The record is a 150-nucleotide sequence from Candidatus Gallionella acididurans, which matches "Group II catalytic intron D1-D4-7" in Rfam. Gene Ontology term of the family: Group II intron splicing. The match comes from Rfam's covariance-model search (116 bits). On this family, see Bonen and Vogel, Trends Genet 2001: "The ins and outs of group II introns". Lineage of the source: Bacteria > Pseudomonadati > Pseudomonadota > Nitrosomonadales > Gallionella. Pairs were carried over by alignment from the consensus structure. Group II introns are found in rRNA, tRNA and mRNA of organelles in fungi, plants and protists, and also in mRNA in bacteria.

Nucleotides: 150
Base pairs, nucleotide, nucleotide: 002019003018004017005016006015007014028069029068030067031066032065033060034059035058036057037056039054040053041052042051043050044049083097084096085095086094087093099121102120107114108113125143126142127141128140129139130138
Number, partner (000 for none) and nucleotide at each position: 001000c002019c003018u004017g005016u006015c007014g008000u009000u010000u011000u012000c013000c014007c015006g016005a017004c018003a019002g020000u021000a022000g023000u024000c025000u026000a027000g028069g029068a030067g031066g032065g033060c034059a035058g036057g037056c038000g039054u040053g041052a042051c043050c044049g045000g046000u047000a048000a049044c050043g051042g052041u053040u054039g055000g056037g057036u058035c059034u060033g061000a062000a063000g064000c065032c066031c067030c068029u069028u070000u071000g072000a073000c074000a075000a076000u077000g078000u079000a080000a081000c082000c083097c084096a085095u086094u087093c088000c089000g090000a091000a092000a093087g094086g095085a096084u097083g098000a099121a100000g101000c102120c103000g104000a105000a106000g107114c108113c109000g110000u111000g112000a113108g114107g115000u116000a117000g118000a119000a120102g121099u122000g123000g124000a125143a126142c127141u128140g129139u130138g131000a132000g133000c134000a135000u136000u137000a138130c139129g140128c141127g142126g143125u144000a145000g146000g147000g148000a149000a150000c